Shown here is an 82-nucleotide RNA from Centropus unirufus, a member of the family "Small nucleolar RNA SNORD111".
The family's consensus secondary structure was predicted with RNAalifold.
Rfam 15.1 lists 894 matches to the family in 541 species.
The match comes from Rfam's covariance-model search (53 bits).
The source organism's lineage runs through Eukaryota, Teleostomi, Sarcopterygii, Amniota and Centropus.
Its family is annotated with nucleolus and RNA processing in the Gene Ontology.
For this family Rfam cites "RNomics: an experimental approach that identifies 201 candidates for novel, small, non-messenger RNAs in mouse" (Huttenhofer et al., EMBO J, 2001).
It is annotated as a C/D-box small nucleolar RNA.
[Rfam]
RNA sequence: UGGCCUGAAAUGAUGUUAUGAAUUCAUGUCUCUUCUCUGACAGCUGUCCUGGAGAUGGCCAGAUGCAUUUCUGAUCAGGCUG
Number, nucleotide and partner (000 for none) at each position: 001u082002g081003g080004c079005c078006u000007g000008a000009a000010a000011u000012g000013a000014u000015g000016u000017u000018a000019u000020g000021a000022a000023u000024u000025c000026a000027u000028g000029u000030c000031u000032c000033u000034u000035c000036u000037c000038u000039g000040a000041c000042a000043g000044c000045u000046g000047u000048c000049c000050u000051g000052g000053a000054g000055a000056u000057g000058g000059c000060c000061a000062g000063a000064u000065g000066c000067a000068u000069u000070u000071c000072u000073g000074a000075u000076c000077a000078g005079g004080c003081u002082g001